[Rfam]
RNA: ZMP/ZTP riboswitch aptamer (pfl RNA motif)
RNA sequence: UACAGGGUACGCAACUGGCGAUAGGAGCCUGGCAUUCGCAAACUUCUGCGAGCCAACUCUGACGUGGAAAUGGGUGGGCUUGUUCCCUUCCUCAACCACUGGGGAGCGUGCACCUUGUACUGGUGUUUGGGUUCAAGGUUUCAGCCGUUCGCCUGGGCAGCCCAU
Numbered sequence: 001u002a003c004a005g006g007g008u009a010c011g012c013a014a015c016u017g018g019c020g021a022u023a024g025g026a027g028c029c030u031g032g033c034a035u036u037c038g039c040a041a042a043c044u045u046c047u048g049c050g051a052g053c054c055a056a057c058u059c060u061g062a063c064g065u066g067g068a069a070a071u072g073g074g075u076g077g078g079c080u081u082g083u084u085c086c087c088u089u090c091c092u093c094a095a096c097c098a099c100u101g102g103g104g105a106g107c108g109u110g111c112a113c114c115u116u117g118u119a120c121u122g123g124u125g126u127u128u129g130g131g132u133u134c135a136a137g138g139u140u141u142c143a144g145c146c147g148u149u150c151g152c153c154u155g156g157g158c159a160g161c162c163c164a165u
Stems, first nucleotide, its partner, number of pairs: 005113001007111006015103002017153005064099004142160001144158003